[Rfam]
RNA sequence: CUCUUAUCAAGAGAGGUGGAGGGAUGUGCCCGAUGAAGCCCGGCAACCGUCAAUGAAUCGUCAUUGAAAUGGUGCCAAUUCACACAGAGCGUUAUGGCUCUGGGAGAUGGGAG
Numbered sequence: 001c002u003c004u005u006a007u008c009a010a011g012a013g014a015g016g017u018g019g020a021g022g023g024a025u026g027u028g029c030c031c032g033a034u035g036a037a038g039c040c041c042g043g044c045a046a047c048c049g050u051c052a053a054u055g056a057a058u059c060g061u062c063a064u065u066g067a068a069a070u071g072g073u074g075c076c077a078a079u080u081c082a083c084a085c086a087g088a089g090c091g092u093u094a095u096g097g098c099u100c101u102g103g104g105a106g107a108u109g110g111g112a113g
Stems, first nucleotide, its partner, number of pairs: 001113008013041001015040003021031003025084004042076004047072002050067005080105001085102006

Shown here is a 113-nucleotide RNA from Bacillus sp. cl95, a member of the family "SAM riboswitch aptamer (S box leader)". From the family's description: The SAM riboswitch is found upstream of a number of genes which code for proteins involved in methionine or cysteine biosynthesis in Gram-positive bacteria.